Background
The family of this 116-nucleotide sequence from Intoshia linei is "U5 spliceosomal RNA". It scores 65 bits against the family's covariance model. By type it is a spliceosomal small nuclear RNA. Rfam describes the family as follows. U5 RNA is a component of both types of known spliceosome. The precise function of this molecule is unknown, though it is known that the 5' loop is required for splice site selection and p220 binding, and that both the 3' stem-loop and the Sm site are important for Sm protein binding and cap methylation.

RNA sequence: UAAGUCUAAUUUCACCGCAAUAAUCGCGUAACAAUUUCGCCUUUUACUAAAUUAUUCCGUGCGGGGGAAUUUUAUAUGACGUAUUAAAACAUUUUUUACGGUCGUGAAAGCGACCA
Numbered sequence: 001u002a003a004g005u006c007u008a009a010u011u012u013c014a015c016c017g018c019a020a021u022a023a024u025c026g027c028g029u030a031a032c033a034a035u036u037u038c039g040c041c042u043u044u045u046a047c048u049a050a051a052u053u054a055u056u057c058c059g060u061g062c063g064g065g066g067g068a069a070u071u072u073u074a075u076a077u078g079a080c081g082u083a084u085u086a087a088a089a090c091a092u093u094u095u096u097u098a099c100g101g102u103c104g105u106g107a108a109a110g111c112g113a114c115c116a
Base pairs, nucleotide, nucleotide: 004080005079006078009070010069011068012067013066015064016063017062018061019060030056031055033053034052035051036050037049100115101114102113103112104111105110
Dot-bracket structure: ...(((..(((((.(((((..........((.(((((...........))))).))...))))).))))).......)))...................((((((....)))))).